[Rfam]
RNA sequence: CGCAGGGUCCGGGCCCCUCUGGCAACCGCAGGCAGCCGGUUGCGAUGUCGGAACCUUCGU
Numbered sequence: 001c002g003c004a005g006g007g008u009c010c011g012g013g014c015c016c017c018u019c020u021g022g023c024a025a026c027c028g029c030a031g032g033c034a035g036c037c038g039g040u041u042g043c044g045a046u047g048u049c050g051g052a053a054c055c056u057u058c059g060u
Stems, first nucleotide, its partner, number of pairs: 006054001008052005022043007
The family of this 60-nucleotide RNA from Roseivivax isoporae is "terC RNA". It scores 51 bits against the family's covariance model. NCBI's taxonomy places the organism under Bacteria, Pseudomonadota, Roseobacteraceae, Roseivivax, Roseivivax isoporae. It is annotated as a cis-regulatory element. The base pairs follow the family's consensus structure, which is taken from published work.